[Rfam]
RNA sequence: GCUGUCCACGGCGUGGAAUGGGGAACCCCUGUACGGGACCGGCAGCUACGCUGGCCGGGUGCGCCCUCUCCCGGAGGACGCAAAGCCGACAGCCGUCGCAACCAGGGAGCAUCUCCAUG
Numbered sequence: 001g002c003u004g005u006c007c008a009c010g011g012c013g014u015g016g017a018a019u020g021g022g023g024a025a026c027c028c029c030u031g032u033a034c035g036g037g038a039c040c041g042g043c044a045g046c047u048a049c050g051c052u053g054g055c056c057g058g059g060u061g062c063g064c065c066c067u068c069u070c071c072c073g074g075a076g077g078a079c080g081c082a083a084a085g086c087c088g089a090c091a092g093c094c095g096u097c098g099c100a101a102c103c104a105g106g107g108a109g110c111a112u113c114u115c116c117a118u119g
Stems, first nucleotide, its partner, number of pairs: 060082004065077004085099002088097003
This 119-nucleotide RNA from Streptomyces gilvosporeus belongs to the Rfam family "Streptomyces-metH RNA". The base pairs follow the family's consensus structure, which is taken from published work.